[Rfam]
A member of the RNA family "Bacteroidales small SRP" from Indolivaga macrotermitis, 107 nucleotides long.
The match comes from Rfam's covariance-model search (120 bits).
Its Rfam clan is "SRP clan".
NCBI's taxonomy places the organism under Bacteria, Bacteroidia, Bacteroidales, Dysgonomonadaceae, Indolivaga.
For this family Rfam cites "A high-resolution transcriptome map identifies small RNA regulation of metabolism in the gut microbe Bacteroides thetaiotaomicron" (Ryan et al., Nat Commun, 2020).
Nucleotides: 107
Base pairs, nucleotide, nucleotide: 008103009102010101011100012099013098014097015096017092018091019090020089021088022086023085024083025082
Number, partner (000 for none) and nucleotide at each position: 001000u002000g003000u004000g005000c006000c007000c008103g009102g010101g011100u012099a013098a014097g015096u016000c017092c018091u019090a020089u021088a022086c023085g024083g025082u026000c027000a028000g029000c030000u031000c032000c033000c034000g035000a036000u037000u038000a039000a040000u041000c042000c043000c044000c045000c046000a047000g048000g049000g050000u051000u052000u053000g054000a055000u056000c057000g058000c059000a060000g061000c062000a063000a064000g065000g066000g067000u068000a069000g070000u071000u072000g073000g074000u075000u076000g077000u078000a079000g080000c081000g082025g083024c084000g085023c086022g087000a088021u089020a090019u091018a092017g093000u094000a095000a096015g097014c098013u099012u100011a101010c102009c103008c104000a105000c106000u107000u